[Rfam]
RNA sequence: CCGUGUUCUGUGACUGACUCGGCUGGCAACGGACUGAGCCCUCCGGUCUGUCACGGAACACGGGA
Number, nucleotide and partner (000 for none) at each position: 001c063002c062003g061004u060005g059006u058007u057008c056009u055010g054011u053012g052013a051014c050015u000016g048017a047018c046019u000020c045021g044022g043023c000024u000025g040026g039027c038028a000029a000030c000031g000032g000033a000034c000035u000036g000037a000038g027039c026040c025041c000042u000043c022044c021045g020046g018047u017048c016049u000050g014051u013052c012053a011054c010055g009056g008057a007058a006059c005060a004061c003062g002063g001064g000065a000
About this RNA
This 65-nucleotide RNA from Acyrthosiphon pisum belongs to the Rfam family "mir-3017 microRNA precursor family". On this family, see Legeai et al., BMC Genomics 2010: "Bioinformatic prediction, deep sequencing of microRNAs and expression analysis during phenotypic plasticity in the pea aphid, Acyrthosiphon pisum". Gene Ontology terms of the family: RISC complex and miRNA-mediated post-transcriptional gene silencing.